[Rfam]
RNA: Small nucleolar SNORD12/SNORD106
RNA sequence: GAUGUUGGUUGAUGAUGCACAACUUUUUUCCCCAUCUUAUCGACCGUGGCGAGACCAGCCUGAAACUUAAGCCAAUUACUCUGAAACCACAUC
Numbered sequence: 001g002a003u004g005u006u007g008g009u010u011g012a013u014g015a016u017g018c019a020c021a022a023c024u025u026u027u028u029u030c031c032c033c034a035u036c037u038u039a040u041c042g043a044c045c046g047u048g049g050c051g052a053g054a055c056c057a058g059c060c061u062g063a064a065a066c067u068u069a070a071g072c073c074a075a076u077u078a079c080u081c082u083g084a085a086a087c088c089a090c091a092u093c
Stems, first nucleotide, its partner, number of pairs: 001093005007088004